[Rfam]
This 112-nucleotide RNA belongs to the Rfam family "Betaproteobacteria-1 RNA". Rfam classes the family as a small RNA.
RNA sequence: UCCUGCGCUGGUCGGGUAACGGCAGCGGCGCGAGUCACCAACCUGGGACUGUGGGGAUCUACACCAGGCAGAGCGGCGAAGGCAGCACUCUGGAUCAAAAGGCUGGCCGCGU
Numbered sequence: 001u002c003c004u005g006c007g008c009u010g011g012u013c014g015g016g017u018a019a020c021g022g023c024a025g026c027g028g029c030g031c032g033a034g035u036c037a038c039c040a041a042c043c044u045g046g047g048a049c050u051g052u053g054g055g056g057a058u059c060u061a062c063a064c065c066a067g068g069c070a071g072a073g074c075g076g077c078g079a080a081g082g083c084a085g086c087a088c089u090c091u092g093g094a095u096c097a098a099a100a101g102g103c104u105g106g107c108c109g110c111g112u
Stems, first nucleotide, its partner, number of pairs: 002034001004032007022052004042068005056096004069092005081108003084104003
Background
Rfam's curators put it in the seed alignment.